RNA sequence: UCGCCCGAGGAGCGUUGCGACGACCGCCAUGGUCGCCAGGCUCGGGCGAGGCGGCGCGCCGACGAGGCCAGCGAGGUUUCGGGCGUGCCGCUGUCAACGGCGCUCACCCGAC
Numbered sequence: 001u002c003g004c005c006c007g008a009g010g011a012g013c014g015u016u017g018c019g020a021c022g023a024c025c026g027c028c029a030u031g032g033u034c035g036c037c038a039g040g041c042u043c044g045g046g047c048g049a050g051g052c053g054g055c056g057c058g059c060c061g062a063c064g065a066g067g068c069c070a071g072c073g074a075g076g077u078u079u080c081g082g083g084c085g086u087g088c089c090g091c092u093g094u095c096a097a098c099g100g101c102g103c104u105c106a107c108c109c110g111a112c
Stems, first nucleotide, its partner, number of pairs: 002048007021035006